[Rfam]
Rfam assigns this 111-nucleotide RNA from Streptomyces sp. ISL-10 to the family "Streptomyces RNA 4115". The family's RNA type in Rfam is small RNA.

RNA sequence: GCGUGGGUCGGCCCACUGCGUACUGGAACCAGUGGGCUGGGGGAGACUGCCGCCUCAAUCCCCGCGGGCGGCGGGCCGGUCCGGGAGGCGAACUCCGCCUCCCGGGCUGGA
Numbered sequence: 001g002c003g004u005g006g007g008u009c010g011g012c013c014c015a016c017u018g019c020g021u022a023c024u025g026g027a028a029c030c031a032g033u034g035g036g037c038u039g040g041g042g043g044a045g046a047c048u049g050c051c052g053c054c055u056c057a058a059u060c061c062c063c064g065c066g067g068g069c070g071g072c073g074g075g076c077c078g079g080u081c082c083g084g085g086a087g088g089c090g091a092a093c094u095c096c097g098c099c100u101c102c103c104g105g106g107c108u109g110g111a
Stems, first nucleotide, its partner, number of pairs: 002109001006077003009039010047074009078108013
Dot-bracket structure: .(...(((((((((((((...........)))))))))).......(((((((((..........))))))))))))(((((((((((((.....))))))))))))))..